[Rfam]
RNA sequence: ACGCCCUGCCUCGUGAUCGUCUUCUCAACCUUCACCGGCGGGCGGAGUGAGGGGAACCCCCGCGAGGACAUGACUCGCGGGGGUUUCCU
Numbered sequence: 001a002c003g004c005c006c007u008g009c010c011u012c013g014u015g016a017u018c019g020u021c022u023u024c025u026c027a028a029c030c031u032u033c034a035c036c037g038g039c040g041g042g043c044g045g046a047g048u049g050a051g052g053g054g055a056a057c058c059c060c061c062g063c064g065a066g067g068a069c070a071u072g073a074c075u076c077g078c079g080g081g082g083g084u085u086u087c088c089u
Stems, first nucleotide, its partner, number of pairs: 002044002005042006013035004019029002051089016
Notes
sodF sRNA: an 89-nucleotide RNA sequence from Streptomyces griseoviridis. The match comes from Rfam's covariance-model search (93 bits).